[Rfam]
RNA: tRNA
RNA sequence: GCCCUCGUAGCUCAGUGGAUAGAGCACAGGAUUCCUAAUCCUGGUGCCGCAGGUCCGAUUCCUGCCGGGGGCA
Numbered sequence: 001g002c003c004c005u006c007g008u009a010g011c012u013c014a015g016u017g018g019a020u021a022g023a024g025c026a027c028a029g030g031a032u033u034c035c036u037a038a039u040c041c042u043g044g045u046g047c048c049g050c051a052g053g054u055c056c057g058a059u060u061c062c063u064g065c066c067g068g069g070g071g072c073a
Stems, first nucleotide, its partner, number of pairs: 001072007010025004027043005049065005